[Rfam]
RNA sequence: CGUAUGGUGUAAGAUAGCUUUGGGCUGAUUUUAUAGCGAUACGGCUUCAAUUUGAGGU
Numbered sequence: 001c002g003u004a005u006g007g008u009g010u011a012a013g014a015u016a017g018c019u020u021u022g023g024g025c026u027g028a029u030u031u032u033a034u035a036g037c038g039a040u041a042c043g044g045c046u047u048c049a050a051u052u053u054g055a056g057g058u
Base pairs, nucleotide, nucleotide: 001043002042003041004040005039007037008036011032012031013030014029015028
Shown here is a 58-nucleotide RNA sequence from [Actinobacillus] rossii, a member of the family "L31-Gammaproteobacteria ribosomal protein leader". The family is grouped with related families in Rfam's "Ribosomal Protein L31 Leader clan". The organism belongs to [Pasteurella] aerogenes-[Pasteurella] mairii-[Actinobacillus] rossii complex, within Bacteria.